A member of the RNA family "Plastid-clpP 5UTR RNA" from Vitis rotundifolia, 69 nucleotides long.
Rfam classes the family as a cis-regulatory element.
For this family Rfam cites "Retrograde signaling in plants: A critical review focusing on the GUN pathway and beyond" (Richter et al., Plant Commun, 2023).
RNA sequence: AAUUCUAUUCGUAGGAAAAAAGAUAAACAGAUCUAUUCUAUACCCAAUAAGUGCCAAUACGCAAUGGGG
Numbered sequence: 001a002a003u004u005c006u007a008u009u010c011g012u013a014g015g016a017a018a019a020a021a022g023a024u025a026a027a028c029a030g031a032u033c034u035a036u037u038c039u040a041u042a043c044c045c046a047a048u049a050a051g052u053g054c055c056a057a058u059a060c061g062c063a064a065u066g067g068g069g
Stems, first nucleotide, its partner, number of pairs: 003022002006019001008017003043068003051060003